Shown here is a 76-nucleotide sequence from Felis catus, a member of the family "Small nucleolar RNA SNORD53/SNORD92". The literature on the family includes a 1996 paper in Cell by Kiss-Laszlo et al., "Site-specific ribose methylation of preribosomal RNA: a novel function for small nucleolar RNAs". Clan: SNORD52 clan.

RNA sequence: UUGCUGUGAUGAUUUCCAUUGGGUUUCGCAUGUUGCUGAGUUCCAGUGAUGCCUUUUCUCUUGGCUGUCUGAGCAG
Numbered sequence: 001u002u003g004c005u006g007u008g009a010u011g012a013u014u015u016c017c018a019u020u021g022g023g024u025u026u027c028g029c030a031u032g033u034u035g036c037u038g039a040g041u042u043c044c045a046g047u048g049a050u051g052c053c054u055u056u057u058c059u060c061u062u063g064g065c066u067g068u069c070u071g072a073g074c075a076g
Stems, first nucleotide, its partner, number of pairs: 001076004
Dot-bracket structure: ((((....................................................................))))
The base pairs follow the family's consensus structure. Rfam links the family to the GO terms RNA processing and nucleolus.